[Rfam]
RNA sequence: GGAGGGAUGUCAGAGCGGUUUAACGAGGCGGUCUUGAAAACCGUUGACUGUUACAGGUCCGGGGGUUCGAAUCCCUCUCCCUCCG
Numbered sequence: 001g002g003a004g005g006g007a008u009g010u011c012a013g014a015g016c017g018g019u020u021u022a023a024c025g026a027g028g029c030g031g032u033c034u035u036g037a038a039a040a041c042c043g044u045u046g047a048c049u050g051u052u053a054c055a056g057g058u059c060c061g062g063g064g065g066u067u068c069g070a071a072u073c074c075c076u077c078u079c080c081c082u083c084c085g
Base pairs, nucleotide, nucleotide: 001084002083003082004081005080006079007078010026011025028044029043030042031041032040061077062076063075064074065073
The family of this 85-nucleotide sequence from Ginsengibacter hankyongi is "tRNA".
The source organism's lineage runs through Bacteria, Pseudomonadati, Bacteroidota, Chitinophagia and Ginsengibacter.